[Rfam]
RNA sequence: AGAGGUCACAAGUUGGAGGCCAUAGCAGAUGUACUCAUGGCACAGGUCUGUCAGAUUCCAGCAAAUCUGCAAAUUCUGCU
Numbered sequence: 001a002g003a004g005g006u007c008a009c010a011a012g013u014u015g016g017a018g019g020c021c022a023u024a025g026c027a028g029a030u031g032u033a034c035u036c037a038u039g040g041c042a043c044a045g046g047u048c049u050g051u052c053a054g055a056u057u058c059c060a061g062c063a064a065a066u067c068u069g070c071a072a073a074u075u076c077u078g079c080u
Stems, first nucleotide, its partner, number of pairs: 016048002020045001024080006031043002052069006

About this RNA: The record is an 80-nucleotide sequence from Crocodylus porosus, which matches "Mammalian CPEB3 ribozyme" in Rfam. The family's consensus secondary structure is taken from published work. The mammalian CPEB3 ribozyme is a self cleaving RNA located in the second intron of the CPEB3 gene which belongs to a family of genes regulating messenger RNA polyadenylation. A search with the family's covariance model found it, with a score of 41 bits. NCBI's taxonomy places the organism under Eukaryota, Eumetazoa, Sarcopterygii, Crocodylia, Crocodylus.